[Rfam]
RNA sequence: AUUCUUGCGUAAGGGCAGUAUCAUAAGCAAUGAGGGCAACCGAGCUGUGAUUAUUGCUAGUUGAAAACUUUAACCAAUACCCCGCCAUGGGGACGUGAAAUACCGUCCACUACGGCAAUUUUUGAAAGUCCGAGAGGAC
Numbered sequence: 001a002u003u004c005u006u007g008c009g010u011a012a013g014g015g016c017a018g019u020a021u022c023a024u025a026a027g028c029a030a031u032g033a034g035g036g037c038a039a040c041c042g043a044g045c046u047g048u049g050a051u052u053a054u055u056g057c058u059a060g061u062u063g064a065a066a067a068c069u070u071u072a073a074c075c076a077a078u079a080c081c082c083c084g085c086c087a088u089g090g091g092g093a094c095g096u097g098a099a100a101u102a103c104c105g106u107c108c109a110c111u112a113c114g115g116c117a118a119u120u121u122u123u124g125a126a127a128g129u130c131c132g133a134g135a136g137g138a139c
Base pairs, nucleotide, nucleotide: 020051021050022049023048024047026046027045028044034041035040084116085115086114089110091108092107093106094105095104128139129138130137131136